Rfam assigns this 104-nucleotide RNA sequence from Lathyrus oleraceus to the family "Small nucleolar RNA Z279/snoR105/snoR108". Taxonomically the source falls in Lathyrus (Eukaryota, Streptophytina, Euphyllophyta, Spermatophyta). Rfam's curators write: This family includes the plant snoRNAs known as Z279, snoR105 and snoR108. By type it is a C/D-box small nucleolar RNA. The family has 20 seed sequences and 906 matches in Rfam 15.1.
[Rfam]
RNA sequence: GAGAUAUGAUGAGUGACCUAGUCUCGCAUUAUAUAUGUGAGUUGGGUGUCUUCUCCAAGCCUGGUUACGACAAUUGGGCACUCUCCUUUGACCAAUUUGAUCUC
Dot-bracket structure: ((((.........((..(....(((((.........)))))..(((((((...........((((.......)))))))))))......)..))......))))